U4 spliceosomal RNA: a 133-nucleotide sequence from Penicillium vulpinum. Clan: U4 clan. NCBI's taxonomy places the organism under Eukaryota, saccharomyceta, Eurotiomycetidae, Aspergillaceae, Penicillium. By type it is a spliceosomal small nuclear RNA.
[Rfam]
RNA sequence: AUCUUAGUGCACGGGCUUUACACGGAUCAGUGAGGAGACAUCCGAGAUCGUGUUUUUGCUGGUUGAAAACUACCAACGUGACCUCUUCAAGCGGGCCUCUGGGAACGCUUGGGAAUUUUUGAAACAAUAUCAU
Numbered sequence: 001a002u003c004u005u006a007g008u009g010c011a012c013g014g015g016c017u018u019u020a021c022a023c024g025g026a027u028c029a030g031u032g033a034g035g036a037g038a039c040a041u042c043c044g045a046g047a048u049c050g051u052g053u054u055u056u057u058g059c060u061g062g063u064u065g066a067a068a069a070c071u072a073c074c075a076a077c078g079u080g081a082c083c084u085c086u087u088c089a090a091g092c093g094g095g096c097c098u099c100u101g102g103g104a105a106c107g108c109u110u111g112g113g114a115a116u117u118u119u120u121g122a123a124a125c126a127a128u129a130u131c132a133u
Stems, first nucleotide, its partner, number of pairs: 020053005026048003034043003086113008096103002
Dot-bracket structure: ...................(((((.(((.....(((....)))..))))))))................................((((((((..((....))..))))))))....................